[Rfam]
RNA sequence: CUUGGCUAUGGUGACAUGUAUCCCCAGACUUGGUCGGGUAUGCUGGUGGGAGCAUUAUGCGCCCUGGCUGGUGUGCUUACCAUUGCGAUGCCAGUGCCAGUCAUUGUCAAUAAC
Numbered sequence: 001c002u003u004g005g006c007u008a009u010g011g012u013g014a015c016a017u018g019u020a021u022c023c024c025c026a027g028a029c030u031u032g033g034u035c036g037g038g039u040a041u042g043c044u045g046g047u048g049g050g051a052g053c054a055u056u057a058u059g060c061g062c063c064c065u066g067g068c069u070g071g072u073g074u075g076c077u078u079a080c081c082a083u084u085g086c087g088a089u090g091c092c093a094g095u096g097c098c099a100g101u102c103a104u105u106g107u108c109a110a111u112a113a114c
Stems, first nucleotide, its partner, number of pairs: 002113001004111001008107004013102003018097004037077004049063002

Rfam assigns this 114-nucleotide RNA from Chiloscyllium punctatum to the family "Potassium channel RNA editing signal". The base pairs follow the family's consensus structure, which is taken from published work. Gene Ontology term of the family: adenosine to inosine editing. For this family Rfam cites "Control of human potassium channel inactivation by editing of a small mRNA hairpin" (Bhalla et al., Nat Struct Mol Biol, 2004). It scores 96 bits against the family's covariance model.